[Rfam]
RNA sequence: UGGUAGAUGCACCCUGAUUAUUCACCCCGGCUUCACGGCUGGGGUUUUUUGUU
Numbered sequence: 001u002g003g004u005a006g007a008u009g010c011a012c013c014c015u016g017a018u019u020a021u022u023c024a025c026c027c028c029g030g031c032u033u034c035a036c037g038g039c040u041g042g043g044g045u046u047u048u049u050u051g052u053u
Stems, first nucleotide, its partner, number of pairs: 002013003024045009
Overview: Rfam assigns this 53-nucleotide RNA sequence from Leptolyngbyaceae cyanobacterium LF-bin-113 to the family "Nitrogen stress-induced RNA 1". The organism belongs to Leptolyngbyaceae, within Bacteria. It is annotated as a small RNA. For this family Rfam cites "Heterocyst-specific transcription of NsiR1, a non-coding RNA encoded in a tandem array of direct repeats in cyanobacteria" (Ionescu et al., J Mol Biol, 2010).